Trypanosomatid snoRNA TB10Cs1H2: a 63-nucleotide RNA sequence from Trypanosoma brucei. Taxonomically the source falls in Trypanosoma brucei gambiense (Eukaryota, Discoba, Trypanosomatidae, Trypanozoon). The family has 5 seed sequences and 35 matches in Rfam 15.1. The family's RNA type in Rfam is H/ACA-box small nucleolar RNA. Rfam links the family to the GO terms RNA processing and nucleolus.

RNA sequence: AGCACUCAUUUCAAGCUACGCGAGCAUAAGCGUGUUGCUCCGUGGUCGGGUGACGUGCGAGAC
Numbered sequence: 001a002g003c004a005c006u007c008a009u010u011u012c013a014a015g016c017u018a019c020g021c022g023a024g025c026a027u028a029a030g031c032g033u034g035u036u037g038c039u040c041c042g043u044g045g046u047c048g049g050g051u052g053a054c055g056u057g058c059g060a061g062a063c
Stems, first nucleotide, its partner, number of pairs: 002058004006053004015046006022040005